[Rfam]
RNA: U8 small nucleolar RNA
RNA sequence: UCGUCAGUGCGGUACAUCCUGACCUGCCCCGCAAUUGCGGGCAGCGCGUGAUGAGCGCGGCGUGAUGACGUGCUGAUUACGUCACGCGGGGGGCGGGGCCACUGCAACAAGGCCCCGUCACGGAACCCCAGAG
Number, nucleotide and partner (000 for none) at each position: 001u000002c000003g000004u000005c000006a000007g000008u000009g000010c000011g000012g000013u000014a000015c000016a000017u000018c000019c000020u000021g000022a000023c000024c044025u043026g042027c000028c041029c040030c039031g038032c037033a000034a000035u000036u000037g032038c031039g030040g029041g028042c026043a025044g024045c000046g000047c000048g000049u000050g000051a000052u000053g000054a000055g000056c000057g000058c000059g000060g000061c000062g000063u000064g000065a000066u000067g085068a000069c000070g082071u081072g080073c000074u079075g000076a000077u000078u000079a074080c072081g071082u070083c000084a000085c067086g000087c000088g000089g000090g121091g000092g119093g118094c117095g116096g115097g114098g113099c112100c000101a000102c000103u000104g000105c000106a000107a000108c000109a000110a000111g000112g099113c098114c097115c096116c095117g094118u093119c092120a000121c090122g000123g000124a000125a000126c000127c000128c000129c000130a000131g000132a000133g000